[Rfam]
RNA: dinG RNA
RNA sequence: AAUGAUACUUCUGCAAGGCAAUGCAGCUCGCCGGAAGGCGGGAUAAGUAUGUUAUGGGUUGGAAUAGAUACCCACUACGGCUUAU
Numbered sequence: 001a002a003u004g005a006u007a008c009u010u011c012u013g014c015a016a017g018g019c020a021a022u023g024c025a026g027c028u029c030g031c032c033g034g035a036a037g038g039c040g041g042g043a044u045a046a047g048u049a050u051g052u053u054a055u056g057g058g059u060u061g062g063a064a065u066a067g068a069u070a071c072c073c074a075c076u077a078c079g080g081c082u083u084a085u
Base pairs, nucleotide, nucleotide: 011026012025013024014023015022027042028041029040030039031038032037043085044084045083046082047081048080051078052077055074056073057072058071059070